[Rfam]
RNA sequence: UUAAAACAGCCUGUGGGUUGUUCCCACCCACAGGGCCCACUGGGCGCUAGCACACUGAUUCUGCGGGAUCUUUGUGCGCCUGUUUUAUAA
Numbered sequence: 001u002u003a004a005a006a007c008a009g010c011c012u013g014u015g016g017g018u019u020g021u022u023c024c025c026a027c028c029c030a031c032a033g034g035g036c037c038c039a040c041u042g043g044g045c046g047c048u049a050g051c052a053c054a055c056u057g058a059u060u061c062u063g064c065g066g067g068a069u070c071u072u073u074g075u076g077c078g079c080c081u082g083u084u085u086u087a088u089a090a
Base pairs, nucleotide, nucleotide: 002087003086004085005084006083007082008081010034011033012032013031014030015029016028017027018026035045036044037043046079047078050077051076052075053074057070058069059068060067

A member of the RNA family "Enterovirus 5' cloverleaf cis-acting replication element" from Enterovirus alphacoxsackie, 90 nucleotides long. The family's RNA type in Rfam is cis-regulatory element. Its family is annotated with negative stranded viral RNA replication in the Gene Ontology. About the family: This family represents a cis-regulatory element found at the 5' end of Enterovirus genomes. On this family, see Barton et al., EMBO J 2001: "5' cloverleaf in poliovirus RNA is a cis-acting replication element required for negative-strand synthesis".